[Rfam]
This 145-nucleotide RNA sequence from Lachnospiraceae bacterium KM106-2 belongs to the Rfam family "Group II catalytic intron D1-D4-7". Its family is annotated with Group II intron splicing in the Gene Ontology. The pairing is the family consensus, mapped onto this sequence. The match comes from Rfam's covariance-model search (81 bits). NCBI's taxonomy places the organism under Bacteria, Bacillota, Clostridia, Lachnospirales, Lachnospiraceae.
RNA sequence: CCAGCCAUUCCGUUGGCUGAAGCCGUCACCAUUGGCUGUGUCAGUAAUGACAUUGUUCAAAAGCUGGUGAUUAAACGUAACCCUACUUGGAGAUUUAAACCGUGAGGUUAAAAUCGAAACUGCUAGCUACAAAGUGGUUAGGGUG
Numbered sequence: 001c002c003a004g005c006c007a008u009u010c011c012g013u014u015g016g017c018u019g020a021a022g023c024c025g026u027c028a029c030c031a032u033u034g035g036c037u038g039u040g041u042c043a044g045u046a047a048u049g050a051c052a053u054u055g056u057u058c059a060a061a062a063g064c065u066g067g068u069g070a071u072u073a074a075a076c077g078u079a080a081c082c083c084u085a086c087u088u089g090g091a092g093a094u095u096u097a098a099a100c101c102g103u104g105a106g107g108u109u110a111a112a113a114u115c116g117a118a119a120c121u122g123c124u125a126g127c128u129a130c131a132a133a134g135u136g137g138u139u140a141g142g143g144u145g
Base pairs, nucleotide, nucleotide: 002019003018004017005016006015007014027069028068029067030066031065032060033059034058035056036055038053039052040051041050042049043048083090084089092115093114094113095112100107101106119138120137121136122135123134124133